[Rfam]
RNA sequence: GCGCGGGCGAUGUCAACCGGACGCGAUGGGGAAGGCGAGCGUGGUAUUUUCCCGGUUUCUCGUCUUGUCCAACGAAAUGGCAGUCGAGUGCCCCACCGUCCGGUAC
Numbered sequence: 001g002c003g004c005g006g007g008c009g010a011u012g013u014c015a016a017c018c019g020g021a022c023g024c025g026a027u028g029g030g031g032a033a034g035g036c037g038a039g040c041g042u043g044g045u046a047u048u049u050u051c052c053c054g055g056u057u058u059c060u061c062g063u064c065u066u067g068u069c070c071a072a073c074g075a076a077a078u079g080g081c082a083g084u085c086g087a088g089u090g091c092c093c094c095a096c097c098g099u100c101c102g103g104u105a106c
Stems, first nucleotide, its partner, number of pairs: 007104002011023004025100005034092004040067002043064003069080002
RNA: Rhizobiales sRNA Atu_At1